[Rfam]
Rfam assigns this 322-nucleotide sequence from Nesospiza acunhae to the family "7SK RNA". The family's consensus secondary structure is taken from published work.
RNA sequence: GGAUGGUAACCUGGCUGUGGGAUCUGAUAUGCCACUGAUUGCAUGGGUUGAUCUGACUGAUCUGCCUAGCUUAGGCAGGUGUUCCCUCUCUUUCUGACAUUCCAUAUAUGUUCCUCUUAAUGAUGUGUGCUUGGUUAAUGAGUAGAGCCUCCCCAACAGACCAUUGUUCAUUGGUCAAAGGGGUGUGGUAGCUGUCCUCCACUGCUGGAAGGUCUAAGUAAGCUCAAGGUCCAUUUGUAGAUAAAUGUAGGGUAAUCAAGUGCCCAAUACUGAAGACACAUCCAAAUGAAAAGCUGCAUGCACCAUUCUGCAGUGGCUUUUU
Numbered sequence: 001g002g003a004u005g006g007u008a009a010c011c012u013g014g015c016u017g018u019g020g021g022a023u024c025u026g027a028u029a030u031g032c033c034a035c036u037g038a039u040u041g042c043a044u045g046g047g048u049u050g051a052u053c054u055g056a057c058u059g060a061u062c063u064g065c066c067u068a069g070c071u072u073a074g075g076c077a078g079g080u081g082u083u084c085c086c087u088c089u090c091u092u093u094c095u096g097a098c099a100u101u102c103c104a105u106a107u108a109u110g111u112u113c114c115u116c117u118u119a120a121u122g123a124u125g126u127g128u129g130c131u132u133g134g135u136u137a138a139u140g141a142g143u144a145g146a147g148c149c150u151c152c153c154c155a156a157c158a159g160a161c162c163a164u165u166g167u168u169c170a171u172u173g174g175u176c177a178a179a180g181g182g183g184u185g186u187g188g189u190a191g192c193u194g195u196c197c198u199c200c201a202c203u204g205c206u207g208g209a210a211g212g213u214c215u216a217a218g219u220a221a222g223c224u225c226a227a228g229g230u231c232c233a234u235u236u237g238u239a240g241a242u243a244a245a246u247g248u249a250g251g252g253u254a255a256u257c258a259a260g261u262g263c264c265c266a267a268u269a270c271u272g273a274a275g276a277c278a279c280a281u282c283c284a285a286a287u288g289a290a291a292a293g294c295u296g297c298a299u300g301c302a303c304c305a306u307u308c309u310g311c312a313g314u315g316g317c318u319u320u321u322u
Base pairs, nucleotide, nucleotide: 001103002102003101005093006092008089013086014085019083020082022080023079024078025077026076028074030069033064034063037062038061039060040059041057115160116159117134118133119132120131122130135156136155142152144150191261192260193259198254200252202250203249204248205247212242213241214240215239218238219237220236221235222234288321289320290319291318293314294313295312296311297310
Dot-bracket structure: (((.((.(....((....((.(((((.(.(..((..(((((...............).))))))....)....).))))).)).))..)..)).......)))...........((((((.(.......)))))((.....(.(.....).)..))..))..............................(((....(.(.((((......((((..(((((...........)))))))))....)))).).)....)))..........................((((.(((((............)))))...)))).
About this RNA:
About the family: 7SK was discovered as an abundant small nuclear RNA in the mid-70s but a possible function has only recently been suggested. Two independent studies have found that 7SK RNA binds the CDK9/cyclin T complex (known as elongation factor P-TEFb). By type it is a non-coding RNA gene.